Record summary:
Rfam assigns this 99-nucleotide RNA sequence from Cetobacterium sp. 2A to the family "Purine riboswitch aptamer". The match comes from Rfam's covariance-model search (68 bits). The organism belongs to Cetobacterium, within Bacteria. Gene Ontology term of the family: purine nucleobase biosynthetic process. Pairs were carried over by alignment from the consensus structure, which is taken from published work.
RNA sequence: AAAAAAUUAUAAAUAUUUGCUCAUAUAUACCCGGAAUAUGGUCGGGAGUUUCUACGGUUAACCUUUAAAUUAACCACUAUGAGUGAUUAAAAAUGAUUU
Numbered sequence: 001a002a003a004a005a006a007u008u009a010u011a012a013a014u015a016u017u018u019g020c021u022c023a024u025a026u027a028u029a030c031c032c033g034g035a036a037u038a039u040g041g042u043c044g045g046g047a048g049u050u051u052c053u054a055c056g057g058u059u060a061a062c063c064u065u066u067a068a069a070u071u072a073a074c075c076a077c078u079a080u081g082a083g084u085g086a087u088u089a090a091a092a093a094u095g096a097u098u099u
Stems, first nucleotide, its partner, number of pairs: 018085008030046005056075006